[Rfam]
RNA sequence: GAACCGCCUAUCAAGCGGCCACCAUUGCAUGAUGGUGGUGUAAGGCUUGAAGCUGGCCGCCGCAAGACGGCCAUACC
Numbered sequence: 001g002a003a004c005c006g007c008c009u010a011u012c013a014a015g016c017g018g019c020c021a022c023c024a025u026u027g028c029a030u031g032a033u034g035g036u037g038g039u040g041u042a043a044g045g046c047u048u049g050a051a052g053c054u055g056g057c058c059g060c061c062g063c064a065a066g067a068c069g070g071c072c073a074u075a076c077c
Stems, first nucleotide, its partner, number of pairs: 011050005018039009054073006061066001
RNA: Transposase-2 RNA
Organism: Bifidobacterium cuniculi